[Rfam]
RNA sequence: CCUCAGGGCCCCGUCUCCCAACCCUUGUACCAGUGCUGCUGCAGUCCCUGGUACAGGCUUGGGGGGCAGGGAGCCGGGG
Numbered sequence: 001c002c003u004c005a006g007g008g009c010c011c012c013g014u015c016u017c018c019c020a021a022c023c024c025u026u027g028u029a030c031c032a033g034u035g036c037u038g039c040u041g042c043a044g045u046c047c048c049u050g051g052u053a054c055a056g057g058c059u060u061g062g063g064g065g066g067c068a069g070g071g072a073g074c075c076g077g078g079g
Stems, first nucleotide, its partner, number of pairs: 010070002014066005022057002026055007
RNA: mir-150 microRNA precursor family